Rfam assigns this 95-nucleotide sequence from Delphinapterus leucas to the family "Small nucleolar RNA SNORD91 family". A reference for the family is Huttenhofer et al. (2001), "RNomics: an experimental approach that identifies 201 candidates for novel, small, non-messenger RNAs in mouse", EMBO J. Rfam classes the family as a C/D-box small nucleolar RNA. Its family is annotated with RNA processing and nucleolus in the Gene Ontology. Rfam 15.1 lists 977 matches to the family in 495 species.
RNA sequence: CAGAGAAGUCGAUGGUGGUUUUACCCAGCAUGUCUGAACCUGUCUGAUACAUCUCAGUGACGUGAACUCUGUGUGGUUCUGAGACUUCUCUGAGA
Number, nucleotide and partner (000 for none) at each position: 001c000002a000003g000004a089005g088006a087007a086008g085009u084010c083011g000012a000013u000014g000015g000016u000017g000018g000019u000020u000021u000022u000023a000024c000025c000026c000027a000028g000029c000030a000031u000032g000033u000034c000035u000036g000037a000038a000039c000040c000041u000042g000043u000044c000045u000046g000047a000048u000049a000050c000051a000052u000053c000054u000055c000056a000057g000058u000059g000060a000061c000062g000063u000064g000065a000066a000067c000068u000069c000070u000071g000072u000073g000074u000075g000076g000077u000078u000079c000080u000081g000082a000083g010084a009085c008086u007087u006088c005089u004090c000091u000092g000093a000094g000095a000